Potassium channel RNA editing signal: a 114-nucleotide RNA sequence from Setaria digitata. Rfam classes the family as a cis-regulatory element. A reference for the family is Bhalla et al. (2004), "Control of human potassium channel inactivation by editing of a small mRNA hairpin", Nat Struct Mol Biol. About the family: This family represents a group of sequences related to the human potassium channel Kv1.1 hairpin element which directs the efficient modification of an adenosine to inosine by an adenosine deaminase acting on RNA (ADAR). The ADAR modification causes an isoleucine/valine recoding event which lies in the ion-conducting pore of the potassium channel. It is thought that this editing event targets the process of fast inactivation and allows a more rapid recovery from inactivation at negative potentials. The family's consensus secondary structure is taken from published work.
RNA sequence: UAAAGGUAUGGAGAUCUGACGCCUACAGGAGUUUAUGGUAAGCUAGUGGGUGGUCUGUGUGCAUUAAUUGGCGUAUUGACACUUGCCUUACCUGUACCUAUUAUCGUAAGUGCU
Numbered sequence: 001u002a003a004a005g006g007u008a009u010g011g012a013g014a015u016c017u018g019a020c021g022c023c024u025a026c027a028g029g030a031g032u033u034u035a036u037g038g039u040a041a042g043c044u045a046g047u048g049g050g051u052g053g054u055c056u057g058u059g060u061g062c063a064u065u066a067a068u069u070g071g072c073g074u075a076u077u078g079a080c081a082c083u084u085g086c087c088u089u090a091c092c093u094g095u096a097c098c099u100a101u102u103a104u105c106g107u108a109a110g111u112g113c114u
Stems, first nucleotide, its partner, number of pairs: 004111001007108005013102003018097001021095002037077004050062002